[Rfam]
RNA sequence: GAUGGGAAGAGGAAGAAAGAGCCUAAGAGCAGUGGGAGUGGGAACAUUAUGGAAAGCCUAACUUGUUUGUUUCCUCUAACAAUGGGAGAAAAAAUAUUGGUGCUUUCCGAUGCCUCCCAUUCCUAUUGUUGUUAGGUGCUCCUUCCUCUUCCAUCUGUCU
Numbered sequence: 001g002a003u004g005g006g007a008a009g010a011g012g013a014a015g016a017a018a019g020a021g022c023c024u025a026a027g028a029g030c031a032g033u034g035g036g037a038g039u040g041g042g043a044a045c046a047u048u049a050u051g052g053a054a055a056g057c058c059u060a061a062c063u064u065g066u067u068u069g070u071u072u073c074c075u076c077u078a079a080c081a082a083u084g085g086g087a088g089a090a091a092a093a094a095u096a097u098u099g100g101u102g103c104u105u106u107c108c109g110a111u112g113c114c115u116c117c118c119a120u121u122c123c124u125a126u127u128g129u130u131g132u133u134a135g136g137u138g139c140u141c142c143u144u145c146c147u148c149u150u151c152c153a154u155c156u157g158u159c160u
Stems, first nucleotide, its partner, number of pairs: 009151005015145003019141003022136005028130004033125011045112003051108007

This 160-nucleotide RNA sequence from Digitaria exilis belongs to the Rfam family "MIR2118 microRNA precursor family". The match comes from Rfam's covariance-model search (122 bits). The literature on the family includes a 2008 paper in Genome Res by Zhu et al., "A diverse set of microRNAs and microRNA-like small RNAs in developing rice grains".